[Rfam]
This 232-nucleotide RNA from Pseudomonas sp. 21C1 belongs to the Rfam family "sRNA regulator of biofilms A".
Important for biofilm formation and pathogenicity.
By type it is a small RNA.
RNA sequence: AUCAGGGGCCCUGGAAAGGGUCUUCGGGGCGCCUUCUUUCUUACCGUCAGAGGCGCGCCGUGUUGUAAAGCCCACAAGGCAGUUCAACGAGAUUGCGACUGGAACGAAGUUGUCCUGAGGGACGGGGAAGCGUUUAAACGUAUCAGCCAGCUGUAGCCUCUACGGUCGUCCAAGGCAUCCACGAGCCAACAGACGAGCGCGUAGCGACUUCAACACGCAGAGCGUCUCGUCA
Number, nucleotide and partner (000 for none) at each position: 001a000002u060003c000004a000005g024006g023007g022008g021009c020010c019011c018012u017013g000014g000015a000016a000017a012018g011019g010020g009021u008022c007023u006024u005025c000026g000027g000028g059029g058030c057031g056032c000033c000034u000035u051036c050037u049038u000039u000040c000041u046042u000043a000044c000045c000046g041047u000048c000049a037050g036051a035052g000053g000054c000055g000056c031057g030058c029059c028060g002061u000062g152063u000064u150065g000066u000067a000068a000069a000070g080071c079072c078073c000074a000075c000076a000077a000078g072079g071080c070081a000082g139083u138084u000085c000086a134087a133088c132089g131090a000091g000092a000093u000094u000095g000096c000097g000098a000099c000100u000101g000102g000103a000104a000105c000106g000107a000108a000109g000110u000111u000112g000113u000114c000115c127116u126117g000118a000119g000120g000121g000122a000123c000124g000125g000126g116127g115128a000129a000130g000131c089132g088133u087134u086135u000136a000137a000138a083139c082140g000141u000142a000143u000144c000145a000146g000147c000148c000149a000150g064151c000152u062153g000154u000155a000156g000157c000158c000159u000160c000161u000162a000163c000164g000165g000166u000167c195168g194169u193170c192171c000172a000173a000174g187175g186176c185177a000178u000179c000180c000181a000182c000183g000184a000185g176186c175187c174188a000189a000190c000191a000192g170193a169194c168195g167196a000197g000198c000199g000200c000201g000202u000203a000204g000205c220206g000207a000208c217209u000210u000211c000212a000213a000214c000215a000216c000217g208218c000219a000220g205221a000222g000223c000224g000225u000226c000227u000228c000229g000230u000231c000232a000
It scores 135 bits against the family's covariance model.